RNA: Small nucleolar SNORD12/SNORD106
Organism: Scophthalmus maximus
RNA sequence: CGUGUGGUUAAUGAUGACCUCUCUUUCCCCGACUUAUCGACCAUGGUGAUACAGCUGUCAAAUAAGCCAAUUGGAUUCUGAAACCACAAG
Numbered sequence: 001c002g003u004g005u006g007g008u009u010a011a012u013g014a015u016g017a018c019c020u021c022u023c024u025u026u027c028c029c030c031g032a033c034u035u036a037u038c039g040a041c042c043a044u045g046g047u048g049a050u051a052c053a054g055c056u057g058u059c060a061a062a063u064a065a066g067c068c069a070a071u072u073g074g075a076u077u078c079u080g081a082a083a084c085c086a087c088a089a090g
Base pairs, nucleotide, nucleotide: 001090003088004087005086006085007084008083009082